RNA sequence: AAAGCCUGCAAGGGGAGCCAUAUGGCUGAGAGUGGACGUAUAAUGUUCUGACCCUUUGAACCUGUUAGUUAGUACUAGCGUAGGGAUUGUAGUCUUUUUGAUGG
Numbered sequence: 001a002a003a004g005c006c007u008g009c010a011a012g013g014g015g016a017g018c019c020a021u022a023u024g025g026c027u028g029a030g031a032g033u034g035g036a037c038g039u040a041u042a043a044u045g046u047u048c049u050g051a052c053c054c055u056u057u058g059a060a061c062c063u064g065u066u067a068g069u070u071a072g073u074a075c076u077a078g079c080g081u082a083g084g085g086a087u088u089g090u091a092g093u094c095u096u097u098u099u100g101a102u103g104g
Stems, first nucleotide, its partner, number of pairs: 006092005011055004016049001017026003034048006061084004065078004
TPP riboswitch aptamer (THI element): a 104-nucleotide sequence from Oceanobacillus iheyensis. The organism belongs to Oceanobacillus iheyensis, within Bacteria. Vitamin B(1) in its active form thiamin pyrophosphate (TPP) is an essential coenzyme that is synthesised by coupling of pyrimidine and thiazole moieties in bacteria. It scores 65 bits against the family's covariance model.